[Rfam]
RNA sequence: GGUCAAGAGCACCAGUGCGUACAUCAGUGCGCUAAGUCCCGGCUUGCUGGUCGGCAACCCCCCACGUGCGGGGGGUGCCCCGGAUGACGACCUGGUCCCACGGCAUCGUGGGGCAACGCAGGGC
Dot-bracket structure: ((((....(.((((((..................((......)).)))))))(((..(((.((......)).))).))).........))))..((((((((....))))))))..........
The family of this 124-nucleotide RNA sequence from Georgenia subflava is "SAM (S-adenosyl methionine) riboswitch aptamer". Rfam links the family to the GO terms regulation of gene expression and S-adenosylmethionine metabolic process. It scores 68 bits against the family's covariance model. About the family: SAM-IV is a mRNA element that regulates gene expression via direct sensing of S-adenosylmethionine (SAM or AdoMet). Its Rfam clan is "SAM clan".